[Rfam]
RNA sequence: CGGUUGGGCGUCCGCCCAACCGGCCUGACACCGGUACCUGAUACGGCCGGUGCAG
Numbered sequence: 001c002g003g004u005u006g007g008g009c010g011u012c013c014g015c016c017c018a019a020c021c022g023g024c025c026u027g028a029c030a031c032c033g034g035u036a037c038c039u040g041a042u043a044c045g046g047c048c049g050g051u052g053c054a055g
Stems, first nucleotide, its partner, number of pairs: 001022009025055003029052007